Source information
This 46-nucleotide RNA from Pogonomyrmex barbatus belongs to the Rfam family "Histone 3' UTR stem-loop". The mRNAs of metazoan histone genes lack a poly-A tail. 3' end processing occurs at a site between a highly conserved stem-loop (modelled by this family) and a purine rich region around 20 nts downstream (the histone downstream element, or HDE). The stem-loop is bound by a 31 kDa stem-loop binding protein (SLBP - also termed the histone hairpin binding protein, or HBP). Together with U7 snRNA binding of the HDE, SLBP binding nucleate s the formation of the processing complex. The organism belongs to Pogonomyrmex, within Eukaryota. The base pairs follow the family's consensus structure, which is taken from published work.
RNA sequence: UCAACGGCCCUUUUCAGGGCCAACAAUUCUUAAUAACAUUGGGAAU
Numbered sequence: 001u002c003a004a005c006g007g008c009c010c011u012u013u014u015c016a017g018g019g020c021c022a023a024c025a026a027u028u029c030u031u032a033a034u035a036a037c038a039u040u041g042g043g044a045a046u
Stems, first nucleotide, its partner, number of pairs: 006021006